RNA: epsC RNA
RNA sequence: UGGUGAUGUCUCCUGACCAAUAUCAAUGGAGAUACUCGGUCAUGCUGUGGGUUGAGAAGCCUUAGACGCCAGUCGUCGAAAGUGUGAUGUGAGGGAGGGUUAGAUGCCCA
Dot-bracket structure: [[[[..(((((((..]]]]........)))))))((((((((((((..(((((....)))))..((((.....))))...)))))))).))))...((((.....)))).